Shown here is a 45-nucleotide RNA sequence from Lentimonas sp. CC11, a member of the family "Acido-Lenti-1 RNA". The family's RNA type in Rfam is small RNA.
RNA sequence: CCUAGGGCUGCGCCCUAGGCUGGCAUAUGUCGCCCCGUUGGGGCU
Numbered sequence: 001c002c003u004a005g006g007g008c009u010g011c012g013c014c015c016u017a018g019g020c021u022g023g024c025a026u027a028u029g030u031c032g033c034c035c036c037g038u039u040g041g042g043g044c045u
Stems, first nucleotide, its partner, number of pairs: 001019008032044005